[Rfam]
Overview: The family of this 69-nucleotide RNA sequence is "ASpks TB sRNA".
RNA sequence: CUUCAGCGACCCGAGCCACAGCGGCUGCCGGCGGUUCCGGCCGUAGGUGGCGAUCAGCGCCUGGGCCUC
Numbered sequence: 001c002u003u004c005a006g007c008g009a010c011c012c013g014a015g016c017c018a019c020a021g022c023g024g025c026u027g028c029c030g031g032c033g034g035u036u037c038c039g040g041c042c043g044u045a046g047g048u049g050g051c052g053a054u055c056a057g058c059g060c061c062u063g064g065g066c067c068u069c
Stems, first nucleotide, its partner, number of pairs: 014026004028064002032059002041050003
The base pairs follow the family's consensus structure, which is taken from published work. The match comes from Rfam's covariance-model search (62 bits).